[Rfam]
The record is a 74-nucleotide RNA sequence from Kaistia soli, which matches "tRNA" in Rfam. A search with the family's covariance model found it, with a score of 65 bits. Transfer RNA (tRNA) molecules are approximately 80 nucleotides in length. The family's RNA type in Rfam is transfer RNA. Lineage of the source: Bacteria > Pseudomonadota > Hyphomicrobiales > Kaistiaceae > Kaistia soli.
RNA sequence: CGGAGUGUAGCGCAGCCUGGUAGCGCACGUCGUUCGGGACGACGGGGUCGCAGGUUCAAAUCCUGCCACUCCGA
Number, nucleotide and partner (000 for none) at each position: 001c073002g072003g071004a070005g069006u068007g067008u000009a000010g026011c025012g024013c023014a000015g000016c000017c000018u000019g000020g000021u000022a000023g013024c012025g011026c010027a000028c044029g043030u042031c041032g040033u000034u000035c000036g000037g000038g000039a000040c032041g031042a030043c029044g028045g000046g000047g000048u000049c000050g066051c065052a064053g063054g062055u000056u000057c000058a000059a000060a000061u000062c054063c053064u052065g051066c050067c007068a006069c005070u004071c003072c002073g001074a000